[Rfam]
The record is a 108-nucleotide RNA from Caenorhabditis bovis, which matches "SL2 RNA" in Rfam.
The organism belongs to Caenorhabditis, within Eukaryota.
A search with the family's covariance model found it, with a score of 46 bits.
The base pairs follow the family's consensus structure, which is taken from published work.
This family represents SL2 RNA. SL2 RNA is involved in trans splicing in lower eukaryotes. Trans-splicing is a form of RNA processing. The acquisition of a spliced leader from a SL RNA is a intra-molecular reaction which precisely joins exons derived from separately transcribed RNAs. Approximately 25% of C. elegans genes are organised into polycistronic transcription units and the presence of SL2 on an mRNA is an indication the the gene is in an operon.
For this family Rfam cites "trans splicing of polycistronic Caenorhabditis elegans pre-mRNAs: analysis of the SL2 RNA" (Evans and Blumenthal, Mol Cell Biol, 2000).

RNA sequence: GGUUUAUACCCAGUUCCUGAAGGUAACUAUUGAGAAUACAUUCGAAAGAAUGUGGGUUUCUAUAACCGAAAUUUUCAGCCGCUUCUUCGGGGUAUCCGAUGGAGCAAA
Numbered sequence: 001g002g003u004u005u006a007u008a009c010c011c012a013g014u015u016c017c018u019g020a021a022g023g024u025a026a027c028u029a030u031u032g033a034g035a036a037u038a039c040a041u042u043c044g045a046a047a048g049a050a051u052g053u054g055g056g057u058u059u060c061u062a063u064a065a066c067c068g069a070a071a072u073u074u075u076c077a078g079c080c081g082c083u084u085c086u087u088c089g090g091g092g093u094a095u096c097c098g099a100u101g102g103a104g105c106a107a108a
Base pairs, nucleotide, nucleotide: 007032008031013027014026015025017023034060035059036058039052040051041050042049043048083106085104086103087102088101089100091097092096